[Rfam]
RNA sequence: AGUUGUCUUCGUUAGGUGAGGCUCCUGUGCUGGAGAUACGCUGCUGCCCAAAAACGUCCAAAGACGCCAAUGGGUCAACAGAAAUCAUCGACAUAAGGUGAUUUUUAAUGUAGCUGGAUGAUUCCUAUGCCGCACAGUGCUAAAGCUCUACGAAUGGGGGACAGUG
Numbered sequence: 001a002g003u004u005g006u007c008u009u010c011g012u013u014a015g016g017u018g019a020g021g022c023u024c025c026u027g028u029g030c031u032g033g034a035g036a037u038a039c040g041c042u043g044c045u046g047c048c049c050a051a052a053a054a055c056g057u058c059c060a061a062a063g064a065c066g067c068c069a070a071u072g073g074g075u076c077a078a079c080a081g082a083a084a085u086c087a088u089c090g091a092c093a094u095a096a097g098g099u100g101a102u103u104u105u106u107a108a109u110g111u112a113g114c115u116g117g118a119u120g121a122u123u124c125c126u127a128u129g130c131c132g133c134a135c136a137g138u139g140c141u142a143a144a145g146c147u148c149u150a151c152g153a154a155u156g157g158g159g160g161a162c163a164g165u166g
Base pairs, nucleotide, nucleotide: 005162006161007160008159009158010157011151012150013096015147016146017145020141021140022139025137026136027135028134029133030132032131033130040114041113042112043111044110046075047074048073049072050071055066056065057064058063081105082104083103084102087099088098089097116125117124118123
M-box riboswitch aptamer (ykoK leader): a 166-nucleotide sequence from Halalkalibacterium halodurans. The organism belongs to Halalkalibacterium halodurans, within Bacteria. The match comes from Rfam's covariance-model search (140 bits). From the family's description: M-box riboswitch, also know as ykoK leader is described as a metaloregulatory RNA that sense divalent metals and function as a genetic control element of genes related to divalent metal transport in bacteria. It was first reported upstream of the B.subtilis ykoK gene and genes with related functions in other bacteria. The base pairs follow the family's consensus structure.